[Rfam]
Small nucleolar RNA SNORD103/SNORD85: an 86-nucleotide RNA from Sakesphorus luctuosus. The source organism's lineage runs through Eukaryota, Teleostomi, Tetrapoda, Archosauria and Sakesphorus.
RNA sequence: UCUGGCAAUGAUGACACCCUUGCCCUCUCUGAGAACGCUGUUCAAUAAUGAGCCUCUCACCGUGUGCUCAAAGCGGCUGAGCCAGA
Numbered sequence: 001u002c003u004g005g006c007a008a009u010g011a012u013g014a015c016a017c018c019c020u021u022g023c024c025c026u027c028u029c030u031g032a033g034a035a036c037g038c039u040g041u042u043c044a045a046u047a048a049u050g051a052g053c054c055u056c057u058c059a060c061c062g063u064g065u066g067c068u069c070a071a072a073g074c075g076g077c078u079g080a081g082c083c084a085g086a
Stems, first nucleotide, its partner, number of pairs: 001086006

The family's RNA type in Rfam is C/D-box small nucleolar RNA.